The family of this 30-nucleotide RNA sequence from Halorubrum vacuolatum is "CRISPR RNA direct repeat element".

RNA sequence: GUUUCAGACGGACCCCUGUGGUGUUGAAGC
Numbered sequence: 001g002u003u004u005c006a007g008a009c010g011g012a013c014c015c016c017u018g019u020g021g022u023g024u025u026g027a028a029g030c
Base pairs, nucleotide, nucleotide: 011025012024013023015021